[Rfam]
RNA sequence: AUGAUUGAUACGGGAGAGAACGCGUUAUGGCGUCGCCGUAGGAGCAAGUGAAAGGGGUGUCCUGCAUUCCGUUCACGAAUCUCUCAGGCAAAGGUCACCGUAUUCGGGAC
Dot-bracket structure: ......(((((((......((((......)))).((((...(((...(((((...................)))))....))).).)))........)))))))......
Numbered sequence: 001a002u003g004a005u006u007g008a009u010a011c012g013g014g015a016g017a018g019a020a021c022g023c024g025u026u027a028u029g030g031c032g033u034c035g036c037c038g039u040a041g042g043a044g045c046a047a048g049u050g051a052a053a054g055g056g057g058u059g060u061c062c063u064g065c066a067u068u069c070c071g072u073u074c075a076c077g078a079a080u081c082u083c084u085c086a087g088g089c090a091a092a093g094g095u096c097a098c099c100g101u102a103u104u105c106g107g108g109a110c
Stems, first nucleotide, its partner, number of pairs: 007104007020033004035089003038085001042083003048076005